Small nucleolar RNA snR80: a 174-nucleotide RNA sequence from Lachnellula cervina.
RNA sequence: UCCAGUUGUCAAACACUCUGCUCUUACCUCCAGUCCCUCGUGGACUGGCUCAUCUAUGGUAUUGGGCUAUUUUUGAAACAACGAGAUUGAUUUUUGUCCGAUUACUCACCGCGAUAUCCUCUCUUCCUCUUGGUUGGGCGUGGAUAUAGUGGUCCAUAUCUUUCUGGUCAACAU
Numbered sequence: 001u002c003c004a005g006u007u008g009u010c011a012a013a014c015a016c017u018c019u020g021c022u023c024u025u026a027c028c029u030c031c032a033g034u035c036c037c038u039c040g041u042g043g044a045c046u047g048g049c050u051c052a053u054c055u056a057u058g059g060u061a062u063u064g065g066g067c068u069a070u071u072u073u074u075g076a077a078a079c080a081a082c083g084a085g086a087u088u089g090a091u092u093u094u095u096g097u098c099c100g101a102u103u104a105c106u107c108a109c110c111g112c113g114a115u116a117u118c119c120u121c122u123c124u125u126c127c128u129c130u131u132g133g134u135u136g137g138g139c140g141u142g143g144a145u146a147u148a149g150u151g152g153u154c155c156a157u158a159u160c161u162u163u164c165u166g167g168u169c170a171a172c173a174u
Base pairs, nucleotide, nucleotide: 007080008079009078020067021066022065023064025061026060027059028058030048031047032046033045034044035043036042096169098167099166109152110151111150112149114147115146116145117144118143119142
For this family Rfam cites "Genome-wide searching for pseudouridylation guide snoRNAs: analysis of the Saccharomyces cerevisiae genome" (Schattner et al., Nucleic Acids Res, 2004). A search with the family's covariance model found it, with a score of 48 bits. Rfam classes the family as an H/ACA-box small nucleolar RNA. The source organism's lineage runs through Eukaryota, Ascomycota, saccharomyceta, Pezizomycotina and Lachnellula. The family has 6 seed sequences and 447 matches in Rfam 15.1.